[Rfam]
RNA sequence: AGGCCUGAAGAGAGAGGAAGGGUAUGAUCUGCAGCCUCUGUGGCAGCUGUUGAUCAGCCAUUGCCUCUCUUUUUCUCUCCA
Numbered sequence: 001a002g003g004c005c006u007g008a009a010g011a012g013a014g015a016g017g018a019a020g021g022g023u024a025u026g027a028u029c030u031g032c033a034g035c036c037u038c039u040g041u042g043g044c045a046g047c048u049g050u051u052g053a054u055c056a057g058c059c060a061u062u063g064c065c066u067c068u069c070u071u072u073u074u075c076u077c078u079c080c081a
Stems, first nucleotide, its partner, number of pairs: 008073010019062002022059001025056005032049004
About this RNA
Shown here is an 81-nucleotide RNA from Pipistrellus kuhlii, a member of the family "mir-574 microRNA precursor family". Clan: mir-574 microRNA precursor clan. Pairs were carried over by alignment from the consensus structure, which was predicted with RNAalifold. A reference for the family is Lui et al. (2007), "Patterns of known and novel small RNAs in human cervical cancer", Cancer Res. The family has 6 seed sequences and 4,084 matches in Rfam 15.1.